[Rfam]
RNA sequence: GAGUUGAUUUCCGUGGCGAGGUUAAGGAGUCCACCUCCGGAGCCCCAGCGAAAGCGACAUGCCCGCAGUCUUGCUUCGUGCGAGAUUAGGGGCGGGGUGUGAAAGCGCCCGGAGUCACGGGAAUCAGACCCGAAACCAGGCGAUCUAGCCCUGGACAGGGUGAAGCCGAUCUUCGGAUUGGUGGAGGCCCGCACCGGUCCUGCCGUGCAAUGUGGUCGGAUGAUCUAGGGCUAGGGGUGAAAGGCCCAUCUAGCCUGGCGACAGCUGGUU
Number, nucleotide and partner (000 for none) at each position: 001g000002a000003g000004u000005u126006g125007a124008u123009u122010u121011c120012c119013g118014u117015g116016g115017c114018g000019a000020g044021g043022u042023u041024a000025a000026g038027g037028a036029g035030u000031c000032c000033a000034c000035c029036u028037c027038c026039g000040g000041a023042g022043c021044c020045c000046c000047a000048g055049c054050g000051a000052a000053a000054g049055c048056g000057a000058c000059a000060u000061g093062c092063c091064c090065g000066c000067a000068g086069u085070c084071u083072u082073g081074c080075u000076u000077c000078g000079u000080g074081c073082g072083a071084g070085a069086u068087u000088a000089g000090g064091g063092g062093c061094g000095g000096g109097g108098u107099g106100u000101g000102a000103a000104a000105g000106c099107g098108c097109c096110c000111g000112g000113a000114g017115u016116c015117a014118c013119g012120g011121g010122a009123a008124u007125c006126a005127g000128a000129c268130c267131c000132g265133a000134a000135a000136c258137c257138a256139g255140g254141c253142g000143a000144u000145c234146u233147a232148g231149c230150c229151c228152u227153g226154g225155a224156c222157a000158g190159g189160g188161u187162g000163a000164a000165g182166c181167c180168g179169a178170u177171c176172u000173u000174c000175g000176g171177a170178u169179u168180g167181g166182u165183g000184g000185a000186g000187g161188c160189c159190c158191g000192c000193a000194c219195c218196g217197g216198u000199c215200c214201u000202g213203c212204c000205g000206u000207g000208c000209a000210a000211u000212g203213u202214g200215g199216u197217c196218g195219g194220a000221u000222g156223a000224u155225c154226u153227a152228g151229g150230g149231c148232u147233a146234g145235g000236g246237g245238u244239g000240a000241a000242a000243g000244g238245c237246c236247c000248a000249u000250c000251u000252a000253g141254c140255c139256u138257g137258g136259c000260g000261a000262c000263a000264g000265c132266u000267g130268g129269u000270u000
The family of this 270-nucleotide part of an RNA from candidate division MSBL1 archaeon SCGC-AAA259A05 is "Archaeal large subunit ribosomal RNA". The organism belongs to candidate division MSBL1, within Archaea.